[Rfam]
The family of this 435-nucleotide part of an RNA from Micromonas commoda is "Eukaryotic large subunit ribosomal RNA".
Pairs were carried over by alignment from the consensus structure, which is taken from published work.
Taxonomically the source falls in Micromonas (Eukaryota, Viridiplantae, Mamiellales, Mamiellaceae).
The family has 88 seed sequences and 107,465 matches in Rfam 15.1.
Rfam links the family to the GO terms ribosome and structural constituent of ribosome.

RNA sequence: GGUAGUAGCAAAUAUUCAAAUGAGAACUUUGAAGACUGAAGUGGAGAAAGGUUCCAUGUGAACAGCAAUUGGACAUGGGUUAGUCGAUCCUAAGAGAUGAGGUAAUUCUGUAUGAAGGGUCCAAUCGGACCGUCCAUCGAAAGGGGAUCGGGUUAAAAUUCCCGAACUGGGAUUCGGCUGCGGGCGGUAACGCAAACGAGCCUGGCGACGCCGGCGGGAGCCCCGGGAAGAGUUCUCUUUUCUUUUUAACAGCCUUCGCGCCCUGGAAUCGGUUUAGCCGGAGAUAGGGCCCAACGGCUGGUAAAGCACUGCACGUCUCGCAGUGUCCGGUGCACUCCCGACGGCCCGUGAAAAGCUAGGCGAGCCUCGGUACAGAUCGAACCCACUCGUACUCAUAACCGCAUCAGGUCUCCAAGGUGAACAGCCUCUAGUCGA
Numbered sequence: 001g002g003u004a005g006u007a008g009c010a011a012a013u014a015u016u017c018a019a020a021u022g023a024g025a026a027c028u029u030u031g032a033a034g035a036c037u038g039a040a041g042u043g044g045a046g047a048a049a050g051g052u053u054c055c056a057u058g059u060g061a062a063c064a065g066c067a068a069u070u071g072g073a074c075a076u077g078g079g080u081u082a083g084u085c086g087a088u089c090c091u092a093a094g095a096g097a098u099g100a101g102g103u104a105a106u107u108c109u110g111u112a113u114g115a116a117g118g119g120u121c122c123a124a125u126c127g128g129a130c131c132g133u134c135c136a137u138c139g140a141a142a143g144g145g146g147a148u149c150g151g152g153u154u155a156a157a158a159u160u161c162c163c164g165a166a167c168u169g170g171g172a173u174u175c176g177g178c179u180g181c182g183g184g185c186g187g188u189a190a191c192g193c194a195a196a197c198g199a200g201c202c203u204g205g206c207g208a209c210g211c212c213g214g215c216g217g218g219a220g221c222c223c224c225g226g227g228a229a230g231a232g233u234u235c236u237c238u239u240u241u242c243u244u245u246u247u248a249a250c251a252g253c254c255u256u257c258g259c260g261c262c263c264u265g266g267a268a269u270c271g272g273u274u275u276a277g278c279c280g281g282a283g284a285u286a287g288g289g290c291c292c293a294a295c296g297g298c299u300g301g302u303a304a305a306g307c308a309c310u311g312c313a314c315g316u317c318u319c320g321c322a323g324u325g326u327c328c329g330g331u332g333c334a335c336u337c338c339c340g341a342c343g344g345c346c347c348g349u350g351a352a353a354a355g356c357u358a359g360g361c362g363a364g365c366c367u368c369g370g371u372a373c374a375g376a377u378c379g380a381a382c383c384c385a386c387u388c389g390u391a392c393u394c395a396u397a398a399c400c401g402c403a404u405c406a407g408g409u410c411u412c413c414a415a416g417g418u419g420a421a422c423a424g425c426c427u428c429u430a431g432u433c434g435a
Base pairs, nucleotide, nucleotide: 015033016032017031018030019029020028034433035432036431037430043413044412045411046410049393050392054078055077056076057075058074059073063071064070085389086388087387089144090143094138095137097111098110100109101108102107118131119130120129148165149164150163151162152161168385169384170383171382173381174380175379176378177377178375179374184193185192186191201360202359203358204357205356206355210345211344212343213342215340216339217338218337219336220335223330224329225328226246227245228244229243230242231241250300251299252298253297254296260290261289262288263287264286265285269281270280271279272278307325308324309323310322311321312320399408400407415427416426417425418424